[Rfam]
RNA: Plastid-psbN 5UTR RNA
RNA sequence: UGCAAUCGCCAUCAAAGGGGUAGUUCCCCACCCCGGAUCUACCUUUCCAUAUUAUGAAUUC
Number, nucleotide and partner (000 for none) at each position: 001u000002g000003c000004a000005a000006u000007c000008g000009c000010c000011a000012u000013c000014a000015a000016a000017g045018g044019g043020g042021u041022a040023g039024u000025u037026c036027c035028c000029c000030a000031c000032c000033c000034c000035g027036g026037a025038u000039c023040u022041a021042c020043c019044u018045u017046u000047c000048c000049a000050u000051a000052u000053u000054a000055u000056g000057a000058a000059u000060u000061c000